[Rfam]
RNA sequence: GUGCACGGUGAACACCCAAGGGUGCUAACAUGGCUCCCCCUGGUCUCUUCUACCUGUGCUAUAGUAAACCUGAUUUGUACCUCUGCAUUUGGGGAGCUGUCUCCUCUCUUAAAUGUAUUCAGCAGAUCAGAAUAACU
Number, nucleotide and partner (000 for none) at each position: 001g000002u000003g059004c058005a057006c056007g055008g054009u000010g053011a000012a000013c000014a049015c000016c043017c042018a041019a000020g039021g000022g036023u000024g034025c033026u032027a000028a000029c000030a000031u000032g026033g025034c024035u000036c022037c000038c000039c020040c000041u018042g017043g016044u000045c000046u000047c000048u000049u014050c000051u000052a000053c010054c008055u007056g006057u005058g004059c003060u000061a076062u000063a074064g000065u072066a071067a000068a000069c000070c000071u066072g065073a000074u063075u000076u061077g000078u000079a000080c000081c000082u000083c122084u121085g120086c115087a114088u113089u112090u000091g109092g108093g107094g106095a105096g104097c000098u000099g000100u000101c000102u000103c000104c096105u095106c094107u093108c092109u091110u000111a000112a089113a088114u087115g086116u000117a000118u000119u000120c085121a084122g083123c000124a000125g000126a000127u000128c000129a000130g000131a000132a000133u000134a000135a000136c000137u000
This 137-nucleotide RNA from Takifugu rubripes belongs to the Rfam family "Small nucleolar RNA SNORA22". Rfam's curators write: ACA22 is a member of the H/ACA class of snoRNA that guide the sites of modification of uridines to pseudouridines. Rfam classes the family as an H/ACA-box small nucleolar RNA. The source organism's lineage runs through Eukaryota, Opisthokonta, Actinopteri, Clupeocephala and Takifugu.